The family of this 98-nucleotide sequence from Serratia rubidaea is "Aggregatibacter sRNA 22". A reference for the family is Oogai et al. (2017), "Small RNA repertoires and their intraspecies variation in Aggregatibacter actinomycetemcomitans", DNA Res. The family's consensus secondary structure was predicted with RNAfold. A search with the family's covariance model found it, with a score of 41 bits. By type it is a small RNA.
[Rfam]
RNA sequence: GAAGGGUGACAAAUCGGUCUGGAACCGAUUUGAACGCUGCUUGCAGCGGCCCCGAAGGGGUGAGGCCCAGGGAUGGGCCGAAUACAAAGAAGGUUUAC
Numbered sequence: 001g002a003a004g005g006g007u008g009a010c011a012a013a014u015c016g017g018u019c020u021g022g023a024a025c026c027g028a029u030u031u032g033a034a035c036g037c038u039g040c041u042u043g044c045a046g047c048g049g050c051c052c053c054g055a056a057g058g059g060g061u062g063a064g065g066c067c068c069a070g071g072g073a074u075g076g077g078c079c080g081a082a083u084a085c086a087a088a089g090a091a092g093g094u095u096u097a098c
Stems, first nucleotide, its partner, number of pairs: 010032008035048005049061005064079006082095001085092001